[Rfam]
RNA sequence: GACGCGCCUAGAUUUAGCGGUCGAAAACCUGAAACACCAAUCAGGCUGGCGCAUAUCCUUUCAUUGGUGG
Numbered sequence: 001g002a003c004g005c006g007c008c009u010a011g012a013u014u015u016a017g018c019g020g021u022c023g024a025a026a027a028c029c030u031g032a033a034a035c036a037c038c039a040a041u042c043a044g045g046c047u048g049g050c051g052c053a054u055a056u057c058c059u060u061u062c063a064u065u066g067g068u069g070g
Base pairs, nucleotide, nucleotide: 002054004052005051006050007049008048011022012021013020014019028045029044030043031042032041035070038067040065